The family of this 117-nucleotide RNA from Etheostoma spectabile is "U5 spliceosomal RNA". The family's RNA type in Rfam is spliceosomal small nuclear RNA. The match comes from Rfam's covariance-model search (74 bits). Taxonomically the source falls in Oligocephalus (Eukaryota, Craniata, Vertebrata, Actinopteri).
RNA sequence: UCGCUCUGGUUUCUCUUCAUAACACAUAAGUCUUUCGCCUUUUACUAAAGACUUCCUUGGAGAAGAACGCAGAUGAGCUAAAUCUAGUUUUGGUGGGCUUUGCUGUAUGGCCGAGCC
Numbered sequence: 001u002c003g004c005u006c007u008g009g010u011u012u013c014u015c016u017u018c019a020u021a022a023c024a025c026a027u028a029a030g031u032c033u034u035u036c037g038c039c040u041u042u043u044a045c046u047a048a049a050g051a052c053u054u055c056c057u058u059g060g061a062g063a064a065g066a067a068c069g070c071a072g073a074u075g076a077g078c079u080a081a082a083u084c085u086a087g088u089u090u091u092g093g094u095g096g097g098c099u100u101u102g103c104u105g106u107a108u109g110g111c112c113g114a115g116c117c
Stems, first nucleotide, its partner, number of pairs: 003078004009068004014063006028054008095117001097116004102111001